Annotation: A member of the RNA family "drum RNA", 112 nucleotides long.
RNA sequence: AAGCGUCGAAGUAUAACAGCGUACCGGAAAGCCUUGUUAUGCGGAGCUUUCAGUAGGGGUUAUGCAGUAACCUCAAACCGGAGUAGGCUUUAGCCGAAAGAAAAUGCUUAAA
Numbered sequence: 001a002a003g004c005g006u007c008g009a010a011g012u013a014u015a016a017c018a019g020c021g022u023a024c025c026g027g028a029a030a031g032c033c034u035u036g037u038u039a040u041g042c043g044g045a046g047c048u049u050u051c052a053g054u055a056g057g058g059g060u061u062a063u064g065c066a067g068u069a070a071c072c073u074c075a076a077a078c079c080g081g082a083g084u085a086g087g088c089u090u091u092a093g094c095c096g097a098a099a100g101a102a103a104a105u106g107c108u109u110a111a112a
Base pairs, nucleotide, nucleotide: 001049002048003047004046011042012041013040014039015038016037017036018035019034021032022031024081025080026079027078064107065106066105086095087094088093
Notes: Firmicutes, Bacteroidetes (1 example), Proteobacteria (2 examples), Spirochaetes (2 examples).